The record is a 101-nucleotide RNA sequence from Emberiza fucata, which matches "Small nucleolar RNA SNORD16" in Rfam. It is annotated as a C/D-box small nucleolar RNA. Gene Ontology terms of the family: RNA processing and nucleolus.
RNA sequence: UGCUGUGAUGACGUAAUUUGCGUCUUAUCCAGUGCCCAGCGACAGUUGCCUGCUGUCAUUGUGCUGGCACUGCCGAGCUGACGACUCCUCCGUUCUGAGCA
Numbered sequence: 001u002g003c004u005g006u007g008a009u010g011a012c013g014u015a016a017u018u019u020g021c022g023u024c025u026u027a028u029c030c031a032g033u034g035c036c037c038a039g040c041g042a043c044a045g046u047u048g049c050c051u052g053c054u055g056u057c058a059u060u061g062u063g064c065u066g067g068c069a070c071u072g073c074c075g076a077g078c079u080g081a082c083g084a085c086u087c088c089u090c091c092g093u094u095c096u097g098a099g100c101a
Stems, first nucleotide, its partner, number of pairs: 001101003021083004030072005039064002041057005